[Rfam]
RNA sequence: AAUGGUGAGUAGUCGCGGCUCAUGUUCCACAUGAGUUGAGGAAAGUCCAGGCUCGCCCGGUGCUGAGAUGCCCGGAGUGUUCGUGCCAUCUGCAAAGGUGGGCAGAGAUUCAUUCUCUGACGGCGGAAAAAUCACGCUAAGUCCUCUUCUCGAGGAUAUGCUGAGAGUAUCCUGAAAGUGCCACAGUGACGGAGUUCUUCUGGAAACGGAAGAAAUGGAACGAGGUAAACCCCACGAGCGAGCAACCCAAACUAAGGUAGGGGCACCAUCCUGCGGGAACUAUGAACCAAAGGGAUGGAUCGAUGGUAUCUAAUCGAUAGUCAUAUGACUACACCUGCAGUGCGAGAUUGGCAUCGUUUGAGCACGCAGGAACAGAACCUGGCUUACAGCC
Numbered sequence: 001a002a003u004g005g006u007g008a009g010u011a012g013u014c015g016c017g018g019c020u021c022a023u024g025u026u027c028c029a030c031a032u033g034a035g036u037u038g039a040g041g042a043a044a045g046u047c048c049a050g051g052c053u054c055g056c057c058c059g060g061u062g063c064u065g066a067g068a069u070g071c072c073c074g075g076a077g078u079g080u081u082c083g084u085g086c087c088a089u090c091u092g093c094a095a096a097g098g099u100g101g102g103c104a105g106a107g108a109u110u111c112a113u114u115c116u117c118u119g120a121c122g123g124c125g126g127a128a129a130a131a132u133c134a135c136g137c138u139a140a141g142u143c144c145u146c147u148u149c150u151c152g153a154g155g156a157u158a159u160g161c162u163g164a165g166a167g168u169a170u171c172c173u174g175a176a177a178g179u180g181c182c183a184c185a186g187u188g189a190c191g192g193a194g195u196u197c198u199u200c201u202g203g204a205a206a207c208g209g210a211a212g213a214a215a216u217g218g219a220a221c222g223a224g225g226u227a228a229a230c231c232c233c234a235c236g237a238g239c240g241a242g243c244a245a246c247c248c249a250a251a252c253u254a255a256g257g258u259a260g261g262g263g264c265a266c267c268a269u270c271c272u273g274c275g276g277g278a279a280c281u282a283u284g285a286a287c288c289a290a291a292g293g294g295a296u297g298g299a300u301c302g303a304u305g306g307u308a309u310c311u312a313a314u315c316g317a318u319a320g321u322c323a324u325a326u327g328a329c330u331a332c333a334c335c336u337g338c339a340g341u342g343c344g345a346g347a348u349u350g351g352c353a354u355c356g357u358u359u360g361a362g363c364a365c366g367c368a369g370g371a372a373c374a375g376a377a378c379c380u381g382g383c384u385u386a387c388a389g390c391c
Stems, first nucleotide, its partner, number of pairs: 004391003007387001009332006016038006043385003047382005052242005057075004062071002081237005086101006102121001103119006122232002125172003133163002136161002141157006178230002180226003195214008246262003266298007299318006334370005340365004
Source information: A member of the RNA family "Bacterial RNase P class B" from Niallia endozanthoxylica, 391 nucleotides long. The family's RNA type in Rfam is ribozyme. Its family is annotated with dimeric ribonuclease P complex, ribonuclease P activity and tRNA processing in the Gene Ontology. About the family: Ribonuclease P (RNase P) is a ubiquitous endoribonuclease, found in archaea, bacteria and eukarya as well as chloroplasts and mitochondria. Its best characterised activity is the generation of mature 5'-ends of tRNAs by cleaving the 5'-leader elements of precursor-tRNAs. On this family, see Frank and Pace, Annu Rev Biochem 1998: "Ribonuclease P: unity and diversity in a tRNA processing ribozyme".